RNA sequence: AUGUGCGGAUGGUGUUCAGCACCAGUGAUAGGUGUGUUCACCUUUGUGUGGAUGGUGUUCAGCACCAAGGACAGGCGUGUUUACCU
Numbered sequence: 001a002u003g004u005g006c007g008g009a010u011g012g013u014g015u016u017c018a019g020c021a022c023c024a025g026u027g028a029u030a031g032g033u034g035u036g037u038u039c040a041c042c043u044u045u046g047u048g049u050g051g052a053u054g055g056u057g058u059u060c061a062g063c064a065c066c067a068a069g070g071a072c073a074g075g076c077g078u079g080u081u082u083a084c085c086u
Stems, first nucleotide, its partner, number of pairs: 002071001010067007018059007028045001030043005
Annotation
A member of the RNA family "mir-2060 microRNA precursor family" from Branchiostoma lanceolatum, 86 nucleotides long. It scores 82 bits against the family's covariance model. Taxonomically the source falls in Branchiostoma (Eukaryota, Metazoa, Chordata, Cephalochordata). Gene Ontology terms of the family: RISC complex and miRNA-mediated post-transcriptional gene silencing. Pairs were carried over by alignment from the consensus structure, which was predicted with RNAalifold.